[Rfam]
RNA sequence: CUGUGUUAUAGCUUUUUAAGAAUUUGUCUAGCAGGUUUUCCAUUUUUUGCUAGAAAAUCCCC
Numbered sequence: 001c002u003g004u005g006u007u008a009u010a011g012c013u014u015u016u017u018a019a020g021a022a023u024u025u026g027u028c029u030a031g032c033a034g035g036u037u038u039u040c041c042a043u044u045u046u047u048u049g050c051u052a053g054a055a056a057a058u059c060c061c062c
Base pairs, nucleotide, nucleotide: 034059035058036057037056038055039054040053042051044049
U7 small nuclear RNA: a 62-nucleotide sequence from Gorilla gorilla. The match comes from Rfam's covariance-model search (53 bits). For this family Rfam cites "3' end processing of mouse histone pre-mRNA: evidence for additional base-pairing between U7 snRNA and pre-mRNA" (Spycher et al., Nucleic Acids Res, 1994). The base pairs follow the family's consensus structure, which was predicted with PFOLD.